Rfam assigns this 362-nucleotide sequence from Ammoniphilus oxalaticus to the family "Group I catalytic intron".
RNA sequence: CGAAGCUGCUUAAUGCAGCAUAAGGUAUAGUCGUCCUAACUGGUAACGGUUAGUGAGUAUAAUCGGGUGAAUUGCUGGAAAAUCCUUAGAGCUUGUCUUACCACAACGCAGUCGGAAACGGCAAACGUAAAGGUUUGAAAAAAGACGAGAUUGGGCAAUCAGCAGCCAAGCGCCUGUGGCAAAAGCCUGGCGAAGGUUCAACGACUAGGAUAAACCAUCUAAAAGCUAUUAGCUCAUGAUGAUGAAAUCCGUAGGUGACCAAGGUACCUUCUUUUCCGCUUAUCCUUGGAAUCCGAAGCGCCCGACCCCUACUAGCAUGCUAGAGGGUGAAGAUAUAGUCUAGUCAUUUGUGAAAACAAGUG
Numbered sequence: 001c002g003a004a005g006c007u008g009c010u011u012a013a014u015g016c017a018g019c020a021u022a023a024g025g026u027a028u029a030g031u032c033g034u035c036c037u038a039a040c041u042g043g044u045a046a047c048g049g050u051u052a053g054u055g056a057g058u059a060u061a062a063u064c065g066g067g068u069g070a071a072u073u074g075c076u077g078g079a080a081a082a083u084c085c086u087u088a089g090a091g092c093u094u095g096u097c098u099u100a101c102c103a104c105a106a107c108g109c110a111g112u113c114g115g116a117a118a119c120g121g122c123a124a125a126c127g128u129a130a131a132g133g134u135u136u137g138a139a140a141a142a143a144g145a146c147g148a149g150a151u152u153g154g155g156c157a158a159u160c161a162g163c164a165g166c167c168a169a170g171c172g173c174c175u176g177u178g179g180c181a182a183a184a185g186c187c188u189g190g191c192g193a194a195g196g197u198u199c200a201a202c203g204a205c206u207a208g209g210a211u212a213a214a215c216c217a218u219c220u221a222a223a224a225g226c227u228a229u230u231a232g233c234u235c236a237u238g239a240u241g242a243u244g245a246a247a248u249c250c251g252u253a254g255g256u257g258a259c260c261a262a263g264g265u266a267c268c269u270u271c272u273u274u275u276c277c278g279c280u281u282a283u284c285c286u287u288g289g290a291a292u293c294c295g296a297a298g299c300g301c302c303c304g305a306c307c308c309c310u311a312c313u314a315g316c317a318u319g320c321u322a323g324a325g326g327g328u329g330a331a332g333a334u335a336u337a338g339u340c341u342a343g344u345c346a347u348u349u350g351u352g353a354a355a356a357c358a359a360g361u362g
Base pairs, nucleotide, nucleotide: 002037005034006033008031009030010029040049041048042047063305064304065303066302068300069299073164074163075162076161077160078159084155085154086153088151165197166196201341203340204339205338206337207336308327309326310325312323313322314321315320347360348359349358350357351356
A search with the family's covariance model found it, with a score of 82 bits. The base pairs follow the family's consensus structure, which is taken from published work. From the family's description: Group I catalytic introns are large self-splicing ribozymes. They catalyse their own excision from mRNA, tRNA and rRNA precursors in a wide range of organisms. The core secondary structure consists of 9 paired regions (P1-P9). These fold to essentially two domains - the P4-P6 domain (formed from the stacking of P5, P4, P6 and P6a helices) and the P3-P9 domain (formed from the P8, P3, P7 and P9 helices). The organism belongs to Ammoniphilus, within Bacteria.